This 92-nucleotide RNA sequence from Coptis chinensis belongs to the Rfam family "Small nucleolar RNA snoR109".
Its family is annotated with RNA processing and nucleolus in the Gene Ontology.
The organism belongs to Coptis, within Eukaryota.
For this family Rfam cites "Experimental RNomics: identification of 140 candidates for small non-messenger RNAs in the plant Arabidopsis thaliana" (Marker et al., Curr Biol, 2002).

RNA sequence: UGUUUGUAGCUACAUUGAUAAGAAUUUUACUGGAAGAUUAUUGUGAGAUUCAAUCUCUGUCGACAAAUCUGCUUUCCGAGCUUCUUACAUUG
Numbered sequence: 001u002g003u004u005u006g007u008a009g010c011u012a013c014a015u016u017g018a019u020a021a022g023a024a025u026u027u028u029a030c031u032g033g034a035a036g037a038u039u040a041u042u043g044u045g046a047g048a049u050u051c052a053a054u055c056u057c058u059g060u061c062g063a064c065a066a067a068u069c070u071g072c073u074u075u076c077c078g079a080g081c082u083u084c085u086u087a088c089a090u091u092g
Base pairs, nucleotide, nucleotide: 020086021085022084023083024082026080027079032073033072036069037068038067039066041063042062043061